A member of the RNA family "SAM riboswitch aptamer (S box leader)" from Cytobacillus kochii, 104 nucleotides long. Clan: SAM clan.

[Rfam]
RNA sequence: UUCUUAUCAAGAGCAGGCGGAGGGACGAGCCCGAUGAAGCCCGGCAACCGAUUCUAAAUGAACACGGUGCUAAUUCUUGCAGCAAUCAUGCUGACAGAUAAGGA
Number, nucleotide and partner (000 for none) at each position: 001u104002u103003c102004u101005u100006a099007u098008c097009a000010a000011g000012a000013g042014c000015a000016g041017g040018c039019g000020g000021a000022g032023g031024g030025a000026c079027g078028a077029g076030c024031c023032c022033g000034a000035u000036g000037a000038a000039g018040c017041c016042c013043g071044g070045c069046a068047a000048c067049c066050g063051a000052u061053u060054c000055u000056a000057a000058a000059u000060g053061a052062a000063c050064a000065c000066g049067g048068u046069g045070c044071u043072a000073a000074u000075u096076c029077u028078u027079g026080c093081a092082g091083c090084a089085a000086u000087c000088a000089u084090g083091c082092u081093g080094a000095c000096a075097g008098a007099u006100a005101a004102g003103g002104a001